Source information: The family of this 78-nucleotide sequence from Pseudomonas sp. OIL-1 is "SAH (S-adenosyl-L-homocysteine) riboswitch aptamer". The match comes from Rfam's covariance-model search (62 bits). The family's consensus secondary structure is taken from published work. NCBI's taxonomy places the organism under Bacteria, Pseudomonadati, Pseudomonadota, Gammaproteobacteria, Pseudomonas. A reference for the family is Wang et al. (2008), "Riboswitches that sense S-adenosylhomocysteine and activate genes involved in coenzyme recycling", Mol Cell.
[Rfam]
RNA sequence: CCCUCCGAGGGGCGCUGCAGCGGUCGGAUGACCGUCAGGCUCGGAGUGUGUCUCGAACGACAACCGCGCCCAUUCGCC
Numbered sequence: 001c002c003c004u005c006c007g008a009g010g011g012g013c014g015c016u017g018c019a020g021c022g023g024u025c026g027g028a029u030g031a032c033c034g035u036c037a038g039g040c041u042c043g044g045a046g047u048g049u050g051u052c053u054c055g056a057a058c059g060a061c062a063a064c065c066g067c068g069c070c071c072a073u074u075c076g077c078c
Stems, first nucleotide, its partner, number of pairs: 003046006021034005